[Rfam]
RNA sequence: UGGUAGAUGCACCCUGGUUCAGCUCUAGAGGCCAACCUCUAGGGCUUUUUAUU
Number, nucleotide and partner (000 for none) at each position: 001u000002g013003g012004u011005a000006g000007a000008u000009g000010c000011a004012c003013c002014c000015u000016g000017g000018u000019u000020c000021a000022g045023c044024u043025c042026u041027a040028g039029a038030g037031g036032c000033c000034a000035a000036c031037c030038u029039c028040u027041a026042g025043g024044g023045c022046u000047u000048u000049u000050u000051a000052u000053u000
Nitrogen stress-induced RNA 1: a 53-nucleotide RNA from Microcoleus sp. FACHB-831. It scores 50 bits against the family's covariance model. The organism belongs to Microcoleus, within Bacteria. The family's RNA type in Rfam is small RNA. The pairing is the family consensus, mapped onto this sequence.